[Rfam]
RNA sequence: CCGCGUUCUCAGGGCGGGGUGAAAGUCCCCACCGGCGGUGAUGGCGGCCCUUGGGCCGCAUAAGCCCGCGGGCGCCUGGUGGUCGAUAGACCGGCAGGGACAGCAGAUCCGGUGUGAAUCCGGGGCCGACGGUUAGAGUCCGGUUAUGAGAACCGCUG
Numbered sequence: 001c002c003g004c005g006u007u008c009u010c011a012g013g014g015c016g017g018g019g020u021g022a023a024a025g026u027c028c029c030c031a032c033c034g035g036c037g038g039u040g041a042u043g044g045c046g047g048c049c050c051u052u053g054g055g056c057c058g059c060a061u062a063a064g065c066c067c068g069c070g071g072g073c074g075c076c077u078g079g080u081g082g083u084c085g086a087u088a089g090a091c092c093g094g095c096a097g098g099g100a101c102a103g104c105a106g107a108u109c110c111g112g113u114g115u116g117a118a119u120c121c122g123g124g125g126c127c128g129a130c131g132g133u134u135a136g137a138g139u140c141c142g143g144u145u146a147u148g149a150g151a152a153c154c155g156c157u158g
Stems, first nucleotide, its partner, number of pairs: 003156003007152001009151002017029003031139002033128002035069004064126002072104002108124005130142003
RNA: FMN riboswitch aptamer (RFN element)
Organism: Phenylobacterium sp. Root1277